[Rfam]
RNA sequence: CCGACGGGCAAUCGCCCGCUCGGACACUGACUUCGGUACCUGAUACGGCCGAAGCAG
Dot-bracket structure: ((((((((......)))).))))...(((.(((((((..........))))))))))

Shown here is a 57-nucleotide RNA from Streptomyces sp. M41(2017), a member of the family "L17-Actino-Proteobacteria ribosomal protein leader". A reference for the family is Eckert and Weinberg (2020), "Discovery of 20 novel ribosomal leader candidates in bacteria and archaea", BMC Microbiol. It scores 68 bits against the family's covariance model.